[Rfam]
RNA sequence: AAUGUCCGGCGCCGGAUCACUCCCUCCCCUGAGUGGAUCCACCGGAGCCAGGUUCUCCCCAACCUGCGUCUCCAACCCCUGACCCCGCGGGCUUCCCCUGGCCCGCGGGGUUUUUAU
Numbered sequence: 001a002a003u004g005u006c007c008g009g010c011g012c013c014g015g016a017u018c019a020c021u022c023c024c025u026c027c028c029c030u031g032a033g034u035g036g037a038u039c040c041a042c043c044g045g046a047g048c049c050a051g052g053u054u055c056u057c058c059c060c061a062a063c064c065u066g067c068g069u070c071u072c073c074a075a076c077c078c079c080u081g082a083c084c085c086c087g088c089g090g091g092c093u094u095c096c097c098c099u100g101g102c103c104c105g106c107g108g109g110g111u112u113u114u115u116a117u
Stems, first nucleotide, its partner, number of pairs: 004013001006011001014040005019034004044073004049066005081112008090103004
The family of this 117-nucleotide RNA sequence from Arenimonas fontis is "Xanthomonadaceae sRNA sX13". Pairs were carried over by alignment from the consensus structure, which was predicted with CMfinder. NCBI's taxonomy places the organism under Bacteria, Pseudomonadota, Gammaproteobacteria, Lysobacterales, Arenimonas. A reference for the family is Schmidtke et al. (2011), "Genome-wide transcriptome analysis of the plant pathogen Xanthomonas identifies sRNAs with putative virulence functions", Nucleic Acids Res. It scores 51 bits against the family's covariance model.